[Rfam]
RNA: mir-1267 microRNA precursor family
RNA sequence: CUCAUCCAAAUCUCAUGUUGAAAUGUAAUCCCCAAUGCCGGAGGUGGGGAUUACAUUUCAACAGGAGAUUUGGGAGGU
Numbered sequence: 001c002u003c004a005u006c007c008a009a010a011u012c013u014c015a016u017g018u019u020g021a022a023a024u025g026u027a028a029u030c031c032c033c034a035a036u037g038c039c040g041g042a043g044g045u046g047g048g049g050a051u052u053a054c055a056u057u058u059c060a061a062c063a064g065g066a067g068a069u070u071u072g073g074g075a076g077g078u
Base pairs, nucleotide, nucleotide: 001076002075003074006073007072008071009070010069011068012067013066014065016063017062018061019060020059021058022057023056024055025054026053027052028051029050030049031048032047033046